A member of the RNA family "Lysine riboswitch aptamer" from Fructilactobacillus fructivorans, 175 nucleotides long.
A search with the family's covariance model found it, with a score of 91 bits.
Pairs were carried over by alignment from the consensus structure, which is taken from published work.
Gene Ontology term of the family: lysine biosynthetic process.
[Rfam]
RNA sequence: AAUUCAAAUAGAGGUUGCAGACAACAAGAUUAGCUAACGGAGAUGUUACUCGUUAAUGAACUUAGUGAAAGGGUUGCUUGCCGAAGCACUAUGCCAGAGUAGGGACAUGGUUGCUGGGACGUGAUUUAAUAAAUUGCGGACUGUCGCAGAUAUUCUGCGGGGAGCUAUUCAAGAA
Numbered sequence: 001a002a003u004u005c006a007a008a009u010a011g012a013g014g015u016u017g018c019a020g021a022c023a024a025c026a027a028g029a030u031u032a033g034c035u036a037a038c039g040g041a042g043a044u045g046u047u048a049c050u051c052g053u054u055a056a057u058g059a060a061c062u063u064a065g066u067g068a069a070a071g072g073g074u075u076g077c078u079u080g081c082c083g084a085a086g087c088a089c090u091a092u093g094c095c096a097g098a099g100u101a102g103g104g105a106c107a108u109g110g111u112u113g114c115u116g117g118g119a120c121g122u123g124a125u126u127u128a129a130u131a132a133a134u135u136g137c138g139g140a141c142u143g144u145c146g147c148a149g150a151u152a153u154u155c156u157g158c159g160g161g162g163a164g165c166u167a168u169u170c171a172a173g174a175a
Stems, first nucleotide, its partner, number of pairs: 007169005017081004022076004033066005085115003088111006095104001116142002120138007144160007